[Rfam]
RNA: Ma3 gene ribosomal frameshift signal
RNA sequence: GGGAAACACCAACAGGGUUUGGGGAAGGAGCAACCCAAGACCCUGAAAUUCCAAGGCUCC
Numbered sequence: 001g002g003g004a005a006a007c008a009c010c011a012a013c014a015g016g017g018u019u020u021g022g023g024g025a026a027g028g029a030g031c032a033a034c035c036c037a038a039g040a041c042c043c044u045g046a047a048a049u050u051c052c053a054a055g056g057c058u059c060c
Stems, first nucleotide, its partner, number of pairs: 014044007022036003028059004